[Rfam]
RNA sequence: ACUAUUGCAAACUUAGUCUGGACACUACAAAAGAAAGUCUGCGUGUAAGAAUGUGCUCACUGCAAAUUUGUAGUGCUCAGAUUAAGUUUAUAAUUGUUC
Numbered sequence: 001a002c003u004a005u006u007g008c009a010a011a012c013u014u015a016g017u018c019u020g021g022a023c024a025c026u027a028c029a030a031a032a033g034a035a036a037g038u039c040u041g042c043g044u045g046u047a048a049g050a051a052u053g054u055g056c057u058c059a060c061u062g063c064a065a066a067u068u069u070g071u072a073g074u075g076c077u078c079a080g081a082u083u084a085a086g087u088u089u090a091u092a093a094u095u096g097u098u099c
Base pairs, nucleotide, nucleotide: 001097002096004094009089010088011087012086013085014084015083016082017081018080019079020078021077023075024074025073026072027071028070029069030068031067038059042055043054044053045052046051
Rfam assigns this 99-nucleotide RNA from Digitaria exilis to the family "MIR1878 microRNA precursor family". Its family is annotated with RISC complex and miRNA-mediated post-transcriptional gene silencing in the Gene Ontology. It scores 77 bits against the family's covariance model. The family has 2 seed sequences and 36 matches in Rfam 15.1. The source organism's lineage runs through Eukaryota, Streptophyta, Spermatophyta, commelinids and Digitaria. Pairs were carried over by alignment from the consensus structure, which was predicted with RNAalifold.